[Rfam]
RNA sequence: AACCCUUGUGUUUUUGAUGAACUGGUGAACAAACACAUAAAAGACAGGUAAAGAGUAAAGCAAAAUCCAAUUUUGCAACCAAAACUCAUGGUUCAGCAUGAGUUAUUUAACAGAUAAGGAGGAAUAUG
Number, nucleotide and partner (000 for none) at each position: 001a000002a049003c048004c047005c000006u000007u041008g000009u000010g036011u035012u000013u033014u032015u031016g030017a000018u000019g000020a000021a000022c027023u000024g000025g000026u000027g022028a000029a000030c016031a015032a014033a013034c000035a011036c010037a000038u000039a000040a000041a007042a000043g000044a000045c000046a000047g004048g003049u002050a000051a000052a000053g000054a000055g000056u000057a000058a000059a000060g000061c000062a000063a000064a000065a125066u124067c000068c122069a000070a000071u119072u118073u117074u116075g115076c000077a000078a000079c000080c000081a107082a106083a104084a103085c102086u101087c100088a099089u098090g000091g000092u000093u000094c000095a000096g000097c000098a089099u088100g087101a086102g085103u084104u083105a000106u082107u081108u000109a000110a000111c000112a000113g000114a000115u075116a074117a073118g072119g071120a000121g000122g068123a000124a066125u065126a000127u000128g000

Background:
The family of this 128-nucleotide RNA from Mus musculus is "Small nucleolar RNA SNORA40". Rfam describes the family as follows. The snoRNA ACA 40 belongs to the H/ACA family of snoRNAs and guides the pseudouridylation of 28S rRNA subunit at position U4565. The family's consensus secondary structure was predicted with RNAalifold. A search with the family's covariance model found it, with a score of 56 bits.